[Rfam]
RNA: lysM-TM7 RNA
RNA sequence: GCCUACCAAUAAAUGUCGUACGGGCGCCAGGUCGAAAUGUGCCCCGUUCUAAGCGAGAAGAAAGACAGAGUAGGGUAGACCGCCUUCGUAGUAAUACGAUUAGGCUGGAG
Number, nucleotide and partner (000 for none) at each position: 001g000002c000003c078004u077005a076006c075007c074008a000009a000010u000011a000012a000013a000014u067015g066016u065017c064018g000019u000020a000021c000022g044023g043024g042025c041026g040027c039028c000029a000030g000031g000032u000033c000034g000035a000036a000037a000038u000039g027040u026041g025042c024043c023044c022045c000046g000047u059048u058049c057050u056051a000052a000053g000054c000055g000056a050057g049058a048059a047060g000061a000062a000063a000064g017065a016066c015067a014068g000069a000070g000071u000072a000073g000074g007075g006076u005077a004078g003079a000080c000081c000082g105083c104084c103085u000086u099087c098088g097089u096090a095091g000092u000093a000094a000095u090096a089097c088098g087099a086100u000101u000102a000103g084104g083105c082106u000107g000108g000109a000110g000